dfrA-dnaX RNA: a 76-nucleotide RNA sequence.
It is annotated as a small RNA.
Rfam's curators put it in the seed alignment.
[Rfam]
RNA sequence: AUGCCUUGUGAUAAAGUUGUAUUAAUUUCAUCAUAAUUACAAUAGAAAAGAUGUCAAAAAGGAAUUAUGAUAGUUU
Numbered sequence: 001a002u003g004c005c006u007u008g009u010g011a012u013a014a015a016g017u018u019g020u021a022u023u024a025a026u027u028u029c030a031u032c033a034u035a036a037u038u039a040c041a042a043u044a045g046a047a048a049a050g051a052u053g054u055c056a057a058a059a060a061g062g063a064a065u066u067a068u069g070a071u072a073g074u075u076u
Base pairs, nucleotide, nucleotide: 030071031070032069033068034067035066036065037064